[Rfam]
RNA: mir-46/mir-47/mir-281 microRNA precursor family
Organism: Gongylonema pulchrum
Nucleotides: 084
Stems, first nucleotide, its partner, number of pairs: 015071004020066003025060004031055003035051002
Number, partner (000 for none) and nucleotide at each position: 001000g002000a003000g004000c005000g006000c007000a008000g009000a010000c011000g012000g013000c014000c015071a016070a017069g018068a019000g020066a021065g022064c023000c024000a025060u026059c027058u028057g029000u030000u031055g032054a033053c034000a035051g036050u037000c038000u039000c040000a041000u042000g043000u044000u045000u046000u047000c048000c049000a050036a051035c052000u053033g054032u055031c056000a057028u058027g059026g060025a061000g062000u063000u064022g065021c066020u067000c068018u069017c070016u071015u072000c073000a074000g075000a076000u077000g078000c079000c080000u081000g082000c083000g084000c